[Rfam]
RNA sequence: GGGCCGGCUUUAGCCCAGCGGUUCCUUCACUCAUUUAAACAUUUCUUACAAUUUCCCUUGGUGGUUCGAAUCCCAGGACCAUCAGAGACCCGCGGGCGCUUCCCGGUCCUUUU
Numbered sequence: 001g002g003g004c005c006g007g008c009u010u011u012a013g014c015c016c017a018g019c020g021g022u023u024c025c026u027u028c029a030c031u032c033a034u035u036u037a038a039a040c041a042u043u044u045c046u047u048a049c050a051a052u053u054u055c056c057c058u059u060g061g062u063g064g065u066u067c068g069a070a071u072c073c074c075a076g077g078a079c080c081a082u083c084a085g086a087g088a089c090c091c092g093c094g095g096g097c098g099c100u101u102c103c104c105g106g107u108c109c110u111u112u113u
Stems, first nucleotide, its partner, number of pairs: 002108006013097004018093004026070003
The family of this 113-nucleotide RNA sequence from Monodelphis domestica is "Vault RNA". Taxonomically the source falls in Monodelphis (Eukaryota, Bilateria, Teleostomi, Didelphinae).